[Rfam]
A member of the RNA family "Small nucleolar RNA SNORA56" from Pelusios castaneus, 134 nucleotides long. About the family: ACA56 is a member of the H/ACA class of snoRNA that guide the sites of modification of uridines to pseudouridines. Its family is annotated with RNA processing and nucleolus in the Gene Ontology. Pairs were carried over by alignment from the consensus structure. It is annotated as an H/ACA-box small nucleolar RNA. Rfam 15.1 lists 153 matches to the family in 125 species.
Nucleotides: 134
Base pairs, nucleotide, nucleotide: 003059004058005057006056007055008054020045021044022043023042024041025038026037071126072125073124074123075122076121078120079119086114087113088112092109093108094106095105096104
Number, partner (000 for none) and nucleotide at each position: 001000g002000a003059g004058c005057a006056g007055a008054c009000a010000g011000u012000u013000a014000u015000c016000c017000c018000u019000u020045u021044u022043u023042a024041g025038c026037c027000u028000g029000a030000u031000a032000c033000c034000u035000g036000u037026g038025g039000c040000u041024c042023u043022a044021g045020a046000g047000g048000g049000a050000g051000u052000c053000a054008g055007u056006c057005u058004g059003c060000c061000a062000a063000a064000u065000u066000a067000a068000a069000g070000a071126g072125g073124a074123a075122g076121g077000u078120c079119u080000g081000u082000c083000u084000u085000u086114g087113u088112c089000c090000a091000g092109c093108a094106c095105a096104g097000u098000u099000a100000g101000a102000c103000a104096c105095u106094g107000a108093u109092g110000c111000g112088g113087g114086c115000u116000g117000c118000a119079a120078g121076c122075u123074u124073u125072c126071c127000a128000u129000a130000c131000a132000c133000c134000a
Clan: SNORA56 clan.